Rfam assigns this 81-nucleotide sequence from Takifugu flavidus to the family "mir-219 microRNA precursor family".
On this family, see Lai et al., Genome Biol 2003: "Computational identification of Drosophila microRNA genes".
The base pairs follow the family's consensus structure, which was predicted with RNAalifold.

RNA sequence: UCAGCGGCUGAUUGUCCAAACGCAAUUCUUGAGAAACCUCGAAUUCACCCCCAAGAAUUGUGUGUGGACAUCUGUUGCUGC
Numbered sequence: 001u002c003a004g005c006g007g008c009u010g011a012u013u014g015u016c017c018a019a020a021c022g023c024a025a026u027u028c029u030u031g032a033g034a035a036a037c038c039u040c041g042a043a044u045u046c047a048c049c050c051c052c053a054a055g056a057a058u059u060g061u062g063u064g065u066g067g068a069c070a071u072c073u074g075u076u077g078c079u080g081c
Base pairs, nucleotide, nucleotide: 002080003079004078005077006076007075010072011071012070014069015068016067017066018065021062022061023060024059025058026057027056028055029054030053031052